[Rfam]
The family of this 194-nucleotide sequence is "IMES-1 RNA motif". By type it is a non-coding RNA gene. On this family, see Weinberg et al., Nature 2009: "Exceptional structured noncoding RNAs revealed by bacterial metagenome analysis".
RNA sequence: CGACGACUGACACAGGAACAACUGCAGACGGGAAUGUGAGGGAAGUCGGAGGGAGAGCCCCCAGGGAGAAAGCGUUGUAAAGACCCGGUGAAAAAAGAGAGCUUUACGACCCACCAAGGAUGAAGAGAUACCAUCCAAGGAGCUGAAGAAAAUCUCACUUUAGACACCUGGGGAACUCGGAUAAAUUCAAAAAG
Numbered sequence: 001c002g003a004c005g006a007c008u009g010a011c012a013c014a015g016g017a018a019c020a021a022c023u024g025c026a027g028a029c030g031g032g033a034a035u036g037u038g039a040g041g042g043a044a045g046u047c048g049g050a051g052g053g054a055g056a057g058c059c060c061c062c063a064g065g066g067a068g069a070a071a072g073c074g075u076u077g078u079a080a081a082g083a084c085c086c087g088g089u090g091a092a093a094a095a096a097g098a099g100a101g102c103u104u105u106a107c108g109a110c111c112c113a114c115c116a117a118g119g120a121u122g123a124a125g126a127g128a129u130a131c132c133a134u135c136c137a138a139g140g141a142g143c144u145g146a147a148g149a150a151a152a153u154c155u156c157a158c159u160u161u162a163g164a165c166a167c168c169u170g171g172g173g174a175a176c177u178c179g180g181a182u183a184a185a186u187u188c189a190a191a192a193a194g
Base pairs, nucleotide, nucleotide: 001048002047003046004045011038012037013036014035060172061171062170063169064168065167074110075109076108077107078106079105080104081103082102118136119135120134121133122132125156126155127154128153129152143163144162145161146160147159148158